[Rfam]
RNA sequence: UAAUGAGAACAGAAAAAGGGCAGUUGCUCUAAACAACUACCCUAUGCAGAACCGUUUAAGACGGUGGCAUAUCUUUAAUUAUUAAAAA
Numbered sequence: 001u002a003a004u005g006a007g008a009a010c011a012g013a014a015a016a017a018g019g020g021c022a023g024u025u026g027c028u029c030u031a032a033a034c035a036a037c038u039a040c041c042c043u044a045u046g047c048a049g050a051a052c053c054g055u056u057u058a059a060g061a062c063g064g065u066g067g068c069a070u071a072u073c074u075u076u077a078a079u080u081a082u083u084a085a086a087a088a
Base pairs, nucleotide, nucleotide: 025035026034051065052064053063054062055061056060
Record summary: The family of this 88-nucleotide RNA sequence from Streptococcus equi is "RNA anti-toxin A". Its family is annotated with negative regulation of translation and mRNA binding in the Gene Ontology. Rfam's curators put it in the seed alignment. The family's consensus secondary structure was predicted with RNAalifold. The organism belongs to Streptococcus equi subsp. equi, within Bacteria. Rfam classes the family as an antitoxin RNA.